[Rfam]
RNA sequence: CACUCUGGAGAGUGGUGCCUCGCGCACCCGCCGACGGGAUAACGAUCUCAGGCGCAAGGACAGAGGG
Numbered sequence: 001c002a003c004u005c006u007g008g009a010g011a012g013u014g015g016u017g018c019c020u021c022g023c024g025c026a027c028c029c030g031c032c033g034a035c036g037g038g039a040u041a042a043c044g045a046u047c048u049c050a051g052g053c054g055c056a057a058g059g060a061c062a063g064a065g066g067g
Base pairs, nucleotide, nucleotide: 001067003065004064005063006062007061014028015027016026017025030053031052032051033049034048037047038046
Glycine riboswitch aptamer: a 67-nucleotide sequence from Roseinatronobacter ekhonensis. The pairing is the family consensus, mapped onto this sequence.